[Rfam]
RNA: Molybdenum/Tungsten riboswitch aptamer (Moco RNA motif)
Organism: Solilutibacter pythonis
RNA sequence: GCGUUGGCGCUCCGAACCGCGUCGCCUUCGCCUUGGCAUGGCGCGCGGUCGUGCCCCCGCGGGGCACUGGGUGCCGGGGGAAACACCAGCGCCUCCCGUGUUUGGAAAGGAGUGUGGAUGACAUCGCU
Numbered sequence: 001g002c003g004u005u006g007g008c009g010c011u012c013c014g015a016a017c018c019g020c021g022u023c024g025c026c027u028u029c030g031c032c033u034u035g036g037c038a039u040g041g042c043g044c045g046c047g048g049u050c051g052u053g054c055c056c057c058c059g060c061g062g063g064g065c066a067c068u069g070g071g072u073g074c075c076g077g078g079g080g081a082a083a084c085a086c087c088a089g090c091g092c093c094u095c096c097c098g099u100g101u102u103u104g105g106a107a108a109g110g111a112g113u114g115u116g117g118a119u120g121a122c123a124u125c126g127c128u
Stems, first nucleotide, its partner, number of pairs: 003119001008114006016049007024042003030037002052066005069094006076087002079084001095105002